[Rfam]
RNA sequence: CUUCCCAUUUAUUUGCUGCUAUAGUCUCUCAGUGAUAUGAGCAGUUAAACAUGAGGGAUAAAAGAAUUUUGGGCCAUUGUAAAUUGAGAUGAAGUAACUUUCAUCUCUUUUGCAUAGUCUAGACAUUU
Numbered sequence: 001c002u003u004c005c006c007a008u009u010u011a012u013u014u015g016c017u018g019c020u021a022u023a024g025u026c027u028c029u030c031a032g033u034g035a036u037a038u039g040a041g042c043a044g045u046u047a048a049a050c051a052u053g054a055g056g057g058a059u060a061a062a063a064g065a066a067u068u069u070u071g072g073g074c075c076a077u078u079g080u081a082a083a084u085u086g087a088g089a090u091g092a093a094g095u096a097a098c099u100u101u102c103a104u105c106u107c108u109u110u111u112g113c114a115u116a117g118u119c120u121a122g123a124c125a126u127u128u
Stems, first nucleotide, its partner, number of pairs: 003058004008053001015045006022037002025035002069122006076115001078114004086107009
Rfam assigns this 128-nucleotide RNA from Sciurus carolinensis to the family "Small nucleolar RNA SNORA20". Taxonomically the source falls in Sciurus (Eukaryota, Chordata, Gnathostomata, Amniota). Rfam's curators write: ACA20 is a member of the H/ACA class of snoRNA that guide the sites of modification of uridines to pseudouridines. The family has 17 seed sequences and 437 matches in Rfam 15.1.